Rfam assigns this 137-nucleotide RNA sequence from Marinithermofilum abyssi to the family "c-di-AMP riboswitch aptamer (ydaO/yuaA leader)".
A search with the family's covariance model found it, with a score of 83 bits.
[Rfam]
RNA sequence: UGUGAAAAACAGCCGAAUCCUGCUUUCUUAUAAAGCAGGUACGGGGGACAAGCAUUGGGGUGAAGCCGUCUUAGACGGCCGGGAUUACCUCGUCCCGAACCCGCCAACUAACCUCGGAGGCUUAUAGGAGGGAUAUU
Numbered sequence: 001u002g003u004g005a006a007a008a009a010c011a012g013c014c015g016a017a018u019c020c021u022g023c024u025u026u027c028u029u030a031u032a033a034a035g036c037a038g039g040u041a042c043g044g045g046g047g048a049c050a051a052g053c054a055u056u057g058g059g060g061u062g063a064a065g066c067c068g069u070c071u072u073a074g075a076c077g078g079c080c081g082g083g084a085u086u087a088c089c090u091c092g093u094c095c096c097g098a099a100c101c102c103g104c105c106a107a108c109u110a111a112c113c114u115c116g117g118a119g120g121c122u123u124a125u126a127g128g129a130g131g132g133a134u135a136u137u
Stems, first nucleotide, its partner, number of pairs: 011122004019039008042116005049057002058102003066078004081096004